Shown here is a 93-nucleotide sequence from Clostridium fallax, a member of the family "Selenocysteine transfer RNA".
RNA sequence: GGGGGUAGAUAAGAGCUGGUGUUCUUGCCGGUCUUCAAAACCGUGUUGUCGUGCUAGGACCACGAUGGGUAGGUUCGAUUCCUACAUACUCCC
Numbered sequence: 001g002g003g004g005g006u007a008g009a010u011a012a013g014a015g016c017u018g019g020u021g022u023u024c025u026u027g028c029c030g031g032u033c034u035u036c037a038a039a040a041c042c043g044u045g046u047u048g049u050c051g052u053g054c055u056a057g058g059a060c061c062a063c064g065a066u067g068g069g070u071a072g073g074u075u076c077g078a079u080u081c082c083u084a085c086a087u088a089c090u091c092c093c
Base pairs, nucleotide, nucleotide: 001093002092003091004090005089006088007087008085011026012025013024014023015022016021029043030042031041032040047067048066049065050064051063070084071083072082073081